This 62-nucleotide sequence from Rhodosalinus halophilus belongs to the Rfam family "sul1 RNA".

[Rfam]
RNA sequence: CCUGGAUCCGGAGCCUGCGCGCAUCCGGAUGGCUCUUCCGGCCGCCGAUCCGCCGGACAACG
Numbered sequence: 001c002c003u004g005g006a007u008c009c010g011g012a013g014c015c016u017g018c019g020c021g022c023a024u025c026c027g028g029a030u031g032g033c034u035c036u037u038c039c040g041g042c043c044g045c046c047g048a049u050c051c052g053c054c055g056g057a058c059a060a061c062g
Stems, first nucleotide, its partner, number of pairs: 006030006037057006
Dot-bracket structure: .....((((((.............))))))......((((((.........)))))).....